[Rfam]
RNA: mir-448 microRNA precursor family
Organism: Lynx pardinus
RNA sequence: GCGGGGAGGUUGAACAUCCUGCAUAGUGCUGCCAGGAAAUCCCUAUUUCAUACUAAGGGGGCUGGUUGCAUAUGUAGGAUGUCCCAUCUCCCCGCCCACUUCAUCG
Numbered sequence: 001g002c003g004g005g006g007a008g009g010u011u012g013a014a015c016a017u018c019c020u021g022c023a024u025a026g027u028g029c030u031g032c033c034a035g036g037a038a039a040u041c042c043c044u045a046u047u048u049c050a051u052a053c054u055a056a057g058g059g060g061g062c063u064g065g066u067u068g069c070a071u072a073u074g075u076a077g078g079a080u081g082u083c084c085c086a087u088c089u090c091c092c093c094g095c096c097c098a099c100u101u102c103a104u105c106g
Base pairs, nucleotide, nucleotide: 004092005091006090007089008088009087010086012084014082015081016080017079018078019077020076021075022074023073024072025071027070028069029068031066032065033064034063035062041061042060043059044058046057047056048055